[Rfam]
RNA: Bacterial large subunit ribosomal RNA, nucleotides 896 to 1332
RNA sequence: CUCCCCGAAAUGUAUUUAGGUACAGCGUCGCAUGGAGCAUGCCGGAGGUAGAGCUACUGGUUGGUUGAGCGGGACUAUCAUCUUAGCAAUGUCAGCCAAACUCCGAAUGCCGGUUAUGUGUGUGCGGCAGUGAGACUGUGGGGGAUAAGCUUCAUAGUCGAAAGGGAAACAGCCCAGAUCGCCGGUUAAGGCCCCUAAGGGUGUACUAAGUGGAAAAGGAUGUGUAAUCGCGAUGACAGCCAGGAGGUUGGCUUAGAAGCAGCCACCCUUGAAAGAGUGCGUAAUAGCUCACUGGUCGAGUGGUUGCGCGCCGACAAUUCAGUGGGGCUGAAGUACACCGCCGAAGCCGCGGCAAGUCGUAUGACUUGGGUAGGGGAGCGUCGUGUGUGGGGUGAAGCAGUAUCGUAAGGGGCUGUGGACUGCAUACGAGUGAGAAU
Numbered sequence: 001c002u003c004c005c006c007g008a009a010a011u012g013u014a015u016u017u018a019g020g021u022a023c024a025g026c027g028u029c030g031c032a033u034g035g036a037g038c039a040u041g042c043c044g045g046a047g048g049u050a051g052a053g054c055u056a057c058u059g060g061u062u063g064g065u066u067g068a069g070c071g072g073g074a075c076u077a078u079c080a081u082c083u084u085a086g087c088a089a090u091g092u093c094a095g096c097c098a099a100a101c102u103c104c105g106a107a108u109g110c111c112g113g114u115u116a117u118g119u120g121u122g123u124g125c126g127g128c129a130g131u132g133a134g135a136c137u138g139u140g141g142g143g144g145a146u147a148a149g150c151u152u153c154a155u156a157g158u159c160g161a162a163a164g165g166g167a168a169a170c171a172g173c174c175c176a177g178a179u180c181g182c183c184g185g186u187u188a189a190g191g192c193c194c195c196u197a198a199g200g201g202u203g204u205a206c207u208a209a210g211u212g213g214a215a216a217a218g219g220a221u222g223u224g225u226a227a228u229c230g231c232g233a234u235g236a237c238a239g240c241c242a243g244g245a246g247g248u249u250g251g252c253u254u255a256g257a258a259g260c261a262g263c264c265a266c267c268c269u270u271g272a273a274a275g276a277g278u279g280c281g282u283a284a285u286a287g288c289u290c291a292c293u294g295g296u297c298g299a300g301u302g303g304u305u306g307c308g309c310g311c312c313g314a315c316a317a318u319u320c321a322g323u324g325g326g327g328c329u330g331a332a333g334u335a336c337a338c339c340g341c342c343g344a345a346g347c348c349g350c351g352g353c354a355a356g357u358c359g360u361a362u363g364a365c366u367u368g369g370g371u372a373g374g375g376g377a378g379c380g381u382c383g384u385g386u387g388u389g390g391g392g393u394g395a396a397g398c399a400g401u402a403u404c405g406u407a408a409g410g411g412g413c414u415g416u417g418g419a420c421u422g423c424a425u426a427c428g429a430g431u432g433a434g435a436a437u
Stems, first nucleotide, its partner, number of pairs: 001378006011024005026130001027128007036121001037119005042113004051104001052102002058098003062094004069087002071084004134159010164175003179352004184348003190342003199339001201338006218312002222309010239296005245269003250264003270274001275290001279288002353368006379432001381429010397416005403410002